The record is a 193-nucleotide RNA from Erysipelotrichaceae bacterium 5_2_54FAA, which matches "Group II catalytic intron D1-D4-3" in Rfam. Rfam links the family to the GO term Group II intron splicing. It scores 64 bits against the family's covariance model.
RNA sequence: CGUAUCGUGAGGUAUGGAAGAGAGGAAGCAAUAGCGAAAUCGUGGCUUAACGGACAGGAAGUCUGAACAUUAAGUUUGGAUGGCUGAUAAUAAGGCGACAUUAGUGAAUGAGAUGGCAACAAGCAUCAAAGUCCAAAAGAUAACCGUAACCUAAUGGCGUAAAUCAGAUAAGUAAACGAGGAAAGGAAACUAA
Dot-bracket structure: ((((((....)))))).............(.(..(....((((.(((((..................................(((((......(((.((((((.(.((..((((........))))...)).)................)))))).)))..))))).)))))..)))).....)...).)..